Lysine riboswitch aptamer: a 179-nucleotide RNA sequence from Lentibacillus halodurans. The base pairs follow the family's consensus structure, which is taken from published work.
RNA sequence: AAGUGGGAUAGAGGUGCGAAGACCAUCAGUAAGCAAUCAGAGGAUGAUGAGGUCCAGUGAUGAUUGUGGAAAGGGGGAUUCGCCGAAACGGAGAGAACCUCAUAUUCUCAAUGUUGGUUCUGGUAUUGAAUAAAUACAGGACUGUCAUAUAGGAGACUAUAUGGAGGGCUAUCUUGCGC
Numbered sequence: 001a002a003g004u005g006g007g008a009u010a011g012a013g014g015u016g017c018g019a020a021g022a023c024c025a026u027c028a029g030u031a032a033g034c035a036a037u038c039a040g041a042g043g044a045u046g047a048u049g050a051g052g053u054c055c056a057g058u059g060a061u062g063a064u065u066g067u068g069g070a071a072a073g074g075g076g077g078a079u080u081c082g083c084c085g086a087a088a089c090g091g092a093g094a095g096a097a098c099c100u101c102a103u104a105u106u107c108u109c110a111a112u113g114u115u116g117g118u119u120c121u122g123g124u125a126u127u128g129a130a131u132a133a134a135u136a137c138a139g140g141a142c143u144g145u146c147a148u149a150u151a152g153g154a155g156a157c158u159a160u161a162u163g164g165a166g167g168g169c170u171a172u173c174u175u176g177c178g179c
Stems, first nucleotide, its partner, number of pairs: 006174006016083005023076002033067007087115004093109005116143007124136004145164007